[Rfam]
RNA sequence: GGUCCAAUGCCACGUUGUUGGUAGCUUAAUGAGCAGGGACCAAUAAUGCUAUGAUUGGACCUAAAGCAAGAGUGAAAUUCAUUUGUUUCGCAUCCUGAUAGGAACCUGCGGAUUCCAUUCCUUUAUGAUCCGCGGAGCCGAUUUAUGCGAUUACAUUU
Numbered sequence: 001g002g003u004c005c006a007a008u009g010c011c012a013c014g015u016u017g018u019u020g021g022u023a024g025c026u027u028a029a030u031g032a033g034c035a036g037g038g039a040c041c042a043a044u045a046a047u048g049c050u051a052u053g054a055u056u057g058g059a060c061c062u063a064a065a066g067c068a069a070g071a072g073u074g075a076a077a078u079u080c081a082u083u084u085g086u087u088u089c090g091c092a093u094c095c096u097g098a099u100a101g102g103a104a105c106c107u108g109c110g111g112a113u114u115c116c117a118u119u120c121c122u123u124u125a126u127g128a129u130c131c132g133c134g135g136a137g138c139c140g141a142u143u144u145a146u147g148c149g150a151u152u153a154c155a156u157u158u
Stems, first nucleotide, its partner, number of pairs: 002060007009052001013048006020041003024034003088150005101139002106135003110131005
The family of this 158-nucleotide RNA from Abrus precatorius is "Small nucleolar RNA snoR2/U65". A search with the family's covariance model found it, with a score of 134 bits. For this family Rfam cites "Localization and processing from a polycistronic precursor of novel snoRNAs in maize" (Shaw et al., J Cell Sci, 1998). The family is grouped with related families in Rfam's "SNORA65 clan". The base pairs follow the family's consensus structure, which was predicted with WAR.